[Rfam]
RNA sequence: AUUGGGAUGAUGAAAAAAUUAGAUGGAUUCUUUCAAAAUGAUGGUUACAGCCAGCUACUUCUGACCGAC
Numbered sequence: 001a002u003u004g005g006g007a008u009g010a011u012g013a014a015a016a017a018a019u020u021a022g023a024u025g026g027a028u029u030c031u032u033u034c035a036a037a038a039u040g041a042u043g044g045u046u047a048c049a050g051c052c053a054g055c056u057a058c059u060u061c062u063g064a065c066c067g068a069c
Base pairs, nucleotide, nucleotide: 002068003067004066005065
Shown here is a 69-nucleotide RNA sequence from Oryza meyeriana, a member of the family "Small nucleolar RNA R12". snoR12 is a C/D box small nucleolar RNA, which acts as a methylation guide for 25S ribosomal RNA in plants. snoR12 has been alternatively named snoZ44 in Arabidopsis and snoZ131 in rice. Gene Ontology terms of the family: nucleolus and RNA processing. A search with the family's covariance model found it, with a score of 44 bits. By type it is a C/D-box small nucleolar RNA. The literature on the family includes a 2003 paper in Nucleic Acids Res by Chen et al., "The high diversity of snoRNAs in plants: identification and comparative study of 120 snoRNA genes from Oryza sativa". Taxonomically the source falls in Oryza meyeriana (Eukaryota, Spermatophyta, Mesangiospermae, Oryza).